Overview
Shown here is a 116-nucleotide RNA sequence from Pomacea canaliculata, a member of the family "Potassium channel RNA editing signal". This family represents a group of sequences related to the human potassium channel Kv1.1 hairpin element which directs the efficient modification of an adenosine to inosine by an adenosine deaminase acting on RNA (ADAR). Pairs were carried over by alignment from the consensus structure, which is taken from published work. Its family is annotated with adenosine to inosine editing in the Gene Ontology.
[Rfam]
RNA sequence: GUGGCAGGUACGGCGACAUGGUACCAAAGACCAUCACCGGCAAGAUAGUGGGCGGCAUCUGCUCGCUGUCCGGCGUGCUGGUCAUCGCCCUGCCCGUGCCAGUCAUCGUCUCCAAC
Numbered sequence: 001g002u003g004g005c006a007g008g009u010a011c012g013g014c015g016a017c018a019u020g021g022u023a024c025c026a027a028a029g030a031c032c033a034u035c036a037c038c039g040g041c042a043a044g045a046u047a048g049u050g051g052g053c054g055g056c057a058u059c060u061g062c063u064c065g066c067u068g069u070c071c072g073g074c075g076u077g078c079u080g081g082u083c084a085u086c087g088c089c090c091u092g093c094c095c096g097u098g099c100c101a102g103u104c105a106u107c108g109u110c111u112c113c114a115a116c
Base pairs, nucleotide, nucleotide: 001116002115004113007112010109011108012107013106015104016103017102020099023097024096039079040078041077042076052064
Dot-bracket structure: ((.(..(..((((.(((..(..((..............((((.........(...........)...........))))................)).)..))).))))..)).))